This 386-nucleotide sequence from Friedmanniella luteola belongs to the Rfam family "Bacterial RNase P class A".

RNA sequence: CGAGUCGGUCAGACGGUUGCGGCGCCGGCGACGGCGUCGAGGAAAGUCCGGACUCCACAGAGCACGGUGGUGGGUAACGCCCACCCGGGGUGACCCGCGGGACAGUGCCACAGAGAACAGACCGCCCGCGCGGCGACGUGCGGGUAAGGGUGAAACGGCGGUGUAAGAGACCACCAGCGCCCCAGGUGACUGGGGCGGCUCGGCAAACCCCACCGGGAGCAAGACCAAGAAGGGCACGCUCGCGUGCCUGCGGAGGCGUUCGAGGGCUGCUCGCCCGAGUCUCCGGGUAGGUCGCACCAGGCCGCUGGUGACAGCGGUCGCAGAUGGAUGACCGUCCCCGGCCCUCGUGGUCGGGACAGAAUCCGGCUUACCGACCGACUCGUCCC
Numbered sequence: 001c002g003a004g005u006c007g008g009u010c011a012g013a014c015g016g017u018u019g020c021g022g023c024g025c026c027g028g029c030g031a032c033g034g035c036g037u038c039g040a041g042g043a044a045a046g047u048c049c050g051g052a053c054u055c056c057a058c059a060g061a062g063c064a065c066g067g068u069g070g071u072g073g074g075u076a077a078c079g080c081c082c083a084c085c086c087g088g089g090g091u092g093a094c095c096c097g098c099g100g101g102a103c104a105g106u107g108c109c110a111c112a113g114a115g116a117a118c119a120g121a122c123c124g125c126c127c128g129c130g131c132g133g134c135g136a137c138g139u140g141c142g143g144g145u146a147a148g149g150g151u152g153a154a155a156c157g158g159c160g161g162u163g164u165a166a167g168a169g170a171c172c173a174c175c176a177g178c179g180c181c182c183c184a185g186g187u188g189a190c191u192g193g194g195g196c197g198g199c200u201c202g203g204c205a206a207a208c209c210c211c212a213c214c215g216g217g218a219g220c221a222a223g224a225c226c227a228a229g230a231a232g233g234g235c236a237c238g239c240u241c242g243c244g245u246g247c248c249u250g251c252g253g254a255g256g257c258g259u260u261c262g263a264g265g266g267c268u269g270c271u272c273g274c275c276c277g278a279g280u281c282u283c284c285g286g287g288u289a290g291g292u293c294g295c296a297c298c299a300g301g302c303c304g305c306u307g308g309u310g311a312c313a314g315c316g317g318u319c320g321c322a323g324a325u326g327g328a329u330g331a332c333c334g335u336c337c338c339c340g341g342c343c344c345u346c347g348u349g350g351u352c353g354g355g356a357c358a359g360a361a362u363c364c365g366g367c368u369u370a371c372c373g374a375c376c377g378a379c380u381c382g383u384c385c386c
Stems, first nucleotide, its partner, number of pairs: 001382010012336007020039008044369003048366005053219004060272004065215005070084005085099001086097004100210002105208002107204003122149002124145009157175002160172003177199001178197008223293004232284003236280002264276004300319008

It scores 294 bits against the family's covariance model. Taxonomically the source falls in Friedmanniella (Bacteria, Bacillati, Actinomycetota, Actinomycetes). The family's RNA type in Rfam is ribozyme.